A member of the RNA family "Archaeal large subunit ribosomal RNA" from Halapricum desulfuricans, 97 nucleotides of a longer RNA. A search with the family's covariance model found it, with a score of 2854 bits.

RNA sequence: GACGGGGCAUACAAGGUCCCGUGACGAAUGACCCGGGUGCGAACCCGCAGUAAGACUCACGGGAAGCCGAUGUUCCGUCGUGCGUUUUGAAAAACGA
Number, nucleotide and partner (000 for none) at each position: 001g079002a078003c077004g076005g075006g074007g073008c072009a071010u070011a000012c000013a000014a000015g068016g067017u000018c000019c062020c061021g060022u059023g058024a057025c000026g000027a000028a000029u053030g000031a000032c000033c000034c047035g046036g045037g044038u043039g000040c000041g000042a000043a038044c037045c036046c035047g034048c000049a000050g000051u000052a000053a029054g000055a000056c000057u024058c023059a022060c021061g020062g019063g000064a000065a000066g000067c016068c015069g000070a010071u009072g008073u007074u006075c005076c004077g003078u002079c001080g000081u000082g000083c096084g095085u094086u000087u000088u000089g000090a000091a000092a000093a000094a085095c084096g083097a000